Shown here is a 275-nucleotide RNA from Panicum miliaceum, a member of the family "MIR821 microRNA precursor family".

RNA sequence: AAUUUCAAAUGAAAAGGUCAUGCACAUAAAAGUUGUACAACUCAUCAAGAUCUACAACCUUUAUUUUGGUCAUUUGUUCAUUCGACAAAGUUAUGGUAACCUUGUUCACAAAUUUUACGUAUCUCUCUAAUAGUUUCAUAAACGUUAAUAGAGAUAUGUAAAAUUUAUGAACAAUGUUACCAUAACUUUGUCGGAUGAAAAAAUGACCAAAAUAAAAGUUGUAGAUCUUGAUGAGUUGUACAACUUUUAUUUCCAUGACUUUUUCAGCUGAAAUC
Numbered sequence: 001a002a003u004u005u006c007a008a009a010u011g012a013a014a015a016g017g018u019c020a021u022g023c024a025c026a027u028a029a030a031a032g033u034u035g036u037a038c039a040a041c042u043c044a045u046c047a048a049g050a051u052c053u054a055c056a057a058c059c060u061u062u063a064u065u066u067u068g069g070u071c072a073u074u075u076g077u078u079c080a081u082u083c084g085a086c087a088a089a090g091u092u093a094u095g096g097u098a099a100c101c102u103u104g105u106u107c108a109c110a111a112a113u114u115u116u117a118c119g120u121a122u123c124u125c126u127c128u129a130a131u132a133g134u135u136u137c138a139u140a141a142a143c144g145u146u147a148a149u150a151g152a153g154a155u156a157u158g159u160a161a162a163a164u165u166u167a168u169g170a171a172c173a174a175u176g177u178u179a180c181c182a183u184a185a186c187u188u189u190g191u192c193g194g195a196u197g198a199a200a201a202a203a204u205g206a207c208c209a210a211a212a213u214a215a216a217a218g219u220u221g222u223a224g225a226u227c228u229u230g231a232u233g234a235g236u237u238g239u240a241c242a243a244c245u246u247u248u249a250u251u252u253c254c255a256u257g258a259c260u261u262u263u264u265c266a267g268c269u270g271a272a273a274u275c
Base pairs, nucleotide, nucleotide: 014262015261016260017259018258019257020256021255024252026250027249030246031245032244033243034242035241036240037239038238039237040236041235042234044232045231046230047229048228049227050226051225052224053223055221056220057219058218060216061215062214063213064212065211066210067209069207070206071205072204073203074202075201077199078198079197080196081195083193084192085191086190087189088188089187090186091185092184094182095181096180097179098178099177102174103173104172105171106170107169108168110166111165112164114162115161117159118158119157120156121155122154133143134142135141136140

The match comes from Rfam's covariance-model search (266 bits). The organism belongs to Panicum sect. Panicum, within Eukaryota.